[Rfam]
RNA sequence: AACGCAAUGUGCGCUUGGAGGCUGGAAAAACUCAGCAAAGAUCUUGUCGUCGUCUAUCAGCUUCUUCUCUUGUUCCUCACGAGUUUGGAGUUAAAUAACGGCGCUACAUUU
Numbered sequence: 001a002a003c004g005c006a007a008u009g010u011g012c013g014c015u016u017g018g019a020g021g022c023u024g025g026a027a028a029a030a031c032u033c034a035g036c037a038a039a040g041a042u043c044u045u046g047u048c049g050u051c052g053u054c055u056a057u058c059a060g061c062u063u064c065u066u067c068u069c070u071u072g073u074u075c076c077u078c079a080c081g082a083g084u085u086u087g088g089a090g091u092u093a094a095a096u097a098a099c100g101g102c103g104c105u106a107c108a109u110u111u
Stems, first nucleotide, its partner, number of pairs: 046105001048103005059092006067083003

Small nucleolar RNA snoR97: a 111-nucleotide RNA sequence from Asparagus officinalis. Pairs were carried over by alignment from the consensus structure, which was predicted with WAR. On this family, see Marker et al., Curr Biol 2002: "Experimental RNomics: identification of 140 candidates for small non-messenger RNAs in the plant Arabidopsis thaliana". Rfam 15.1 lists 862 matches to the family in 223 species. The match comes from Rfam's covariance-model search (61 bits). Its family is annotated with RNA processing and nucleolus in the Gene Ontology.